[Rfam]
RNA sequence: GCCUUGAAAGCUCAACAACUAGAGCUUUGGUCUUGUAAACCAGGAGAGAGGGUAAACUCCCUCUCAAGGCU
Numbered sequence: 001g002c003c004u005u006g007a008a009a010g011c012u013c014a015a016c017a018a019c020u021a022g023a024g025c026u027u028u029g030g031u032c033u034u035g036u037a038a039a040c041c042a043g044g045a046g047a048g049a050g051g052g053u054a055a056a057c058u059c060c061c062u063c064u065c066a067a068g069g070c071u
Base pairs, nucleotide, nucleotide: 001070002069003068004067005066006065007064010025011024012023013022027043028042029041030040031039048063049062050061051060052059
tRNA: a 71-nucleotide RNA from Strongylocentrotus purpuratus. The family's consensus secondary structure is taken from published work. NCBI's taxonomy places the organism under Eukaryota, Echinodermata, Echinozoa, Echinidea, Strongylocentrotus. Rfam classes the family as a transfer RNA.